Shown here is a 63-nucleotide RNA sequence from Devosia geojensis, a member of the family "terC RNA". By type it is a cis-regulatory element.

[Rfam]
RNA sequence: GAGCGGCGCCGGGCCCCUCUGGCGGUGGUGAUCUAGUUCGCCCCGUGAUGUCGGAGCCGCUCC
Numbered sequence: 001g002a003g004c005g006g007c008g009c010c011g012g013g014c015c016c017c018u019c020u021g022g023c024g025g026u027g028g029u030g031a032u033c034u035a036g037u038u039c040g041c042c043c044c045g046u047g048a049u050g051u052c053g054g055a056g057c058c059g060c061u062c063c
Stems, first nucleotide, its partner, number of pairs: 006057002009054004022046004027041001029040003